[Rfam]
RNA sequence: GAGUGUUACAGCUCUUUUAGAAUUUGUCUAACAGGUUUUCCAGGUUUUAUCAGAAAACCUCC
Numbered sequence: 001g002a003g004u005g006u007u008a009c010a011g012c013u014c015u016u017u018u019a020g021a022a023u024u025u026g027u028c029u030a031a032c033a034g035g036u037u038u039u040c041c042a043g044g045u046u047u048u049a050u051c052a053g054a055a056a057a058c059c060u061c062c
Stems, first nucleotide, its partner, number of pairs: 034059007043050001
This 62-nucleotide RNA from Propithecus coquereli belongs to the Rfam family "U7 small nuclear RNA".
Pairs were carried over by alignment from the consensus structure, which was predicted with PFOLD.
The organism belongs to Propithecus, within Eukaryota.
A search with the family's covariance model found it, with a score of 57 bits.
Rfam describes the family as follows. Animal histone pre-mRNAs are spliced by a different mechanism than nuclear pre-mRNAs and self-splicing introns.